[Rfam]
RNA sequence: CAGUGAUUUCAGCUCUUUUUGUAUUUGUCUAGUAGGCUUUCUGCUUUAGUGGAAAGCCUUU
Number, nucleotide and partner (000 for none) at each position: 001c000002a000003g000004u000005g000006a000007u000008u000009u000010c000011a000012g000013c000014u000015c000016u000017u000018u000019u000020u000021g000022u000023a000024u000025u000026u000027g000028u000029c000030u000031a000032g000033u000034a000035g058036g057037c056038u055039u054040u053041c052042u051043g050044c049045u000046u000047u000048a000049g044050u043051g042052g041053a040054a039055a038056g037057c036058c035059u000060u000061u000

Annotation
A member of the RNA family "U7 small nuclear RNA" from Varanus komodoensis, 61 nucleotides long. A search with the family's covariance model found it, with a score of 62 bits. Rfam's curators write: Animal histone pre-mRNAs are spliced by a different mechanism than nuclear pre-mRNAs and self-splicing introns. This processing involves the U7 snRNP, which contains only one RNA species: U7. The 5' end of U7 RNA is thought to base-pair to a conserved spacer element downstream of the cleavage site in histone pre-mRNA. This family contains a number of annotated U7 pseudogenes. The base pairs follow the family's consensus structure, which was predicted with PFOLD.